[Rfam]
RNA sequence: CCAAAGGCUCUUUUCAGAGCCACCCACAGUAUCUACAAGAGAACUG
Numbered sequence: 001c002c003a004a005a006g007g008c009u010c011u012u013u014u015c016a017g018a019g020c021c022a023c024c025c026a027c028a029g030u031a032u033c034u035a036c037a038a039g040a041g042a043a044c045u046g
Base pairs, nucleotide, nucleotide: 006021007020008019009018010017011016
RNA: Histone 3' UTR stem-loop